[Rfam]
Nucleotides: 143
Base pairs, nucleotide, nucleotide: 020046021045022044023043024042054093055092056091057090058089059084060083061082062081063080064079069074102118103117104116105115106114107113120136121135122134
Number, partner (000 for none) and nucleotide at each position: 001000c002000a003000g004000u005000g006000g007000g008000u009000g010000c011000a012000a013000g014000u015000c016000c017000c018000a019000c020046c021045c022044g023043g024042c025000c026000a027000a028000g029000u030000u031000u032000g033000a034000u035000c036000g037000c038000u039000c040000c041000a042024g043023c044022c045021g046020g047000a048000a049000g050000c051000u052000a053000u054093c055092g056091g057090a058089g059084c060083g061082g062081c063080g064079g065000u066000g067000g068000a069074g070000g071000u072000a073000a074069c075000g076000a077000a078000g079064c080063c081062g082061u083060c084059g085000g086000a087000g088000c089058c090057u091056u092055c093054g094000a095000g096000a097000c098000a099000c100000a101000c102118g103117u104116g105115c106114c107113g108000u109000u110000u111000a112000g113107c114106g115105g116104u117103g118102c119000g120136g121135c122134g123000a124000g125000u126000u127000g128000g129000c130000a131000g132000g133000c134122c135121g136120u137000a138000a139000c140000g141000c142000g143000a
Notes:
Shown here is a 143-nucleotide RNA from Singulisphaera acidiphila, a member of the family "Group II catalytic intron D1-D4-4". Rfam links the family to the GO term Group II intron splicing. Pairs were carried over by alignment from the consensus structure. Group II introns are found in rRNA, tRNA and mRNA of organelles in fungi, plants and protists, and also in mRNA in bacteria. The source organism's lineage runs through Bacteria, Planctomycetota, Planctomycetia, Isosphaeraceae and Singulisphaera acidiphila.